[Rfam]
RNA: Vertebrate telomerase RNA
RNA sequence: UGCGCCGGGGUGGGCAGGCCCUAUGGCCGACUAACCCUAAUGGCGGCCGCGCCCCUCACGCUCGCCCGCUGUUUUACUCGCUGACUUUCAGCGGGCAAAGGAGGCGGCCCAGGGGAAAGGGGGUGGGGGAAAAGAGUUCCGGCCUCAAGAAAAAAAAAAAAAAAAAAGGCCAGCGAGGGAGAUCCACACCCCGGCCCACCCUGGGGUCCCUGUCCCUUCUCCGAAACCGGGGAUGCUCCCGCCCUCGCCCCUCGUGGAGGCCGCGGUCGGCGGGCUCAGCGCCGCUGCCGCCGCGAAGAGUUCGGCUCUGUCAGCCUCGGCGGCGGCCGGGAGCAGAGGGCCGGCGAGCCCACCCUGGGCAGCCGGGGGACCCCAGCAGAACAAAACGGGCGCGGCGCCGCUGGGCGCUGAGCAGCCGCCGCCCCCCGAGACGUGGGGUGCGCGGCCGGCGCCGCCCCGACACCC
Numbered sequence: 001u002g003c004g005c006c007g008g009g010g011u012g013g014g015c016a017g018g019c020c021c022u023a024u025g026g027c028c029g030a031c032u033a034a035c036c037c038u039a040a041u042g043g044c045g046g047c048c049g050c051g052c053c054c055c056u057c058a059c060g061c062u063c064g065c066c067c068g069c070u071g072u073u074u075u076a077c078u079c080g081c082u083g084a085c086u087u088u089c090a091g092c093g094g095g096c097a098a099a100g101g102a103g104g105c106g107g108c109c110c111a112g113g114g115g116a117a118a119g120g121g122g123g124u125g126g127g128g129g130a131a132a133a134g135a136g137u138u139c140c141g142g143c144c145u146c147a148a149g150a151a152a153a154a155a156a157a158a159a160a161a162a163a164a165a166a167a168g169g170c171c172a173g174c175g176a177g178g179g180a181g182a183u184c185c186a187c188a189c190c191c192c193g194g195c196c197c198a199c200c201c202u203g204g205g206g207u208c209c210c211u212g213u214c215c216c217u218u219c220u221c222c223g224a225a226a227c228c229g230g231g232g233a234u235g236c237u238c239c240c241g242c243c244c245u246c247g248c249c250c251c252u253c254g255u256g257g258a259g260g261c262c263g264c265g266g267u268c269g270g271c272g273g274g275c276u277c278a279g280c281g282c283c284g285c286u287g288c289c290g291c292c293g294c295g296a297a298g299a300g301u302u303c304g305g306c307u308c309u310g311u312c313a314g315c316c317u318c319g320g321c322g323g324c325g326g327c328c329g330g331g332a333g334c335a336g337a338g339g340g341c342c343g344g345c346g347a348g349c350c351c352a353c354c355c356u357g358g359g360c361a362g363c364c365g366g367g368g369g370a371c372c373c374c375a376g377c378a379g380a381a382c383a384a385a386a387c388g389g390g391c392g393c394g395g396c397g398c399c400g401c402u403g404g405g406c407g408c409u410g411a412g413c414a415g416c417c418g419c420c421g422c423c424c425c426c427c428g429a430g431a432c433g434u435g436g437g438g439u440g441c442g443c444g445g446c447c448g449g450c451g452c453c454g455c456c457c458c459g460a461c462a463c464c465c
Base pairs, nucleotide, nucleotide: 004195005194006193007192008191009190010189011188012187014185016183021179022178051105052104053103055101064096065095066094067093068092069091070090071089080174081173082172083171085169086167087166088165201376202375203374204373205372206371207370221344222343223342235334236333237332238331239330240329241328245323246322247321248320249319262295263294264293265292266291268290269289270288271287273283274282275281297309298308299307300306388457389456390455391454394453395452396451397450398449399448416445417444418443419442423438424437425436426435
Dot-bracket structure: ...(((((((((.(.(....((............................(((.(........((((((((........[[[[.[[[[))))))))....).)))...........................................................]]].].]]]]...))...).).))))))))).....(((((((.............(((...........(((((((...(((((............(((((.((((.(((.....)))...))))))))).((((.....)))).........)))))....))))))).......))).........................)))))))...........((((..((((((................((((...((((........))))...))))..))))))))))........